[Rfam]
RNA sequence: AUUCCCGGGGGUGUGUACCCGAUGCGCUCUUGCCGUGCCCGCUACGCUUGCACUCGUGCGCUGUUCCACUGAACCGCGCAAAGCCGACAGCCGUCGCACUCCAGGGAGCAUUUCCAUG
Numbered sequence: 001a002u003u004c005c006c007g008g009g010g011g012u013g014u015g016u017a018c019c020c021g022a023u024g025c026g027c028u029c030u031u032g033c034c035g036u037g038c039c040c041g042c043u044a045c046g047c048u049u050g051c052a053c054u055c056g057u058g059c060g061c062u063g064u065u066c067c068a069c070u071g072a073a074c075c076g077c078g079c080a081a082a083g084c085c086g087a088c089a090g091c092c093g094u095c096g097c098a099c100u101c102c103a104g105g106g107a108g109c110a111u112u113u114c115c116a117u118g
Stems, first nucleotide, its partner, number of pairs: 057080004063074004083097002086095003

Rfam assigns this 118-nucleotide sequence from Streptomyces oceani to the family "Streptomyces-metH RNA".
It is annotated as a small RNA.
It scores 74 bits against the family's covariance model.
Pairs were carried over by alignment from the consensus structure, which is taken from published work.